[Rfam]
RNA sequence: CUUCAGUGCUUGGUUCCUAGUAGGUGUUCAAUAAGUGUUUGUGACAUAAUUCACUUAUUGAGCACCUCCUAUCAAUAAAGUACUGUGUUAGGCUUUGG
Numbered sequence: 001c002u003u004c005a006g007u008g009c010u011u012g013g014u015u016c017c018u019a020g021u022a023g024g025u026g027u028u029c030a031a032u033a034a035g036u037g038u039u040u041g042u043g044a045c046a047u048a049a050u051u052c053a054c055u056u057a058u059u060g061a062g063c064a065c066c067u068c069c070u071a072u073c074a075a076u077a078a079a080g081u082a083c084u085g086u087g088u089u090a091g092g093c094u095u096u097g098g
Stems, first nucleotide, its partner, number of pairs: 004085008013076003018071003022067004027062001029060009040049001
A member of the RNA family "mir-325 microRNA precursor family" from Loxodonta africana, 98 nucleotides long. The family's consensus secondary structure was predicted with RNAalifold.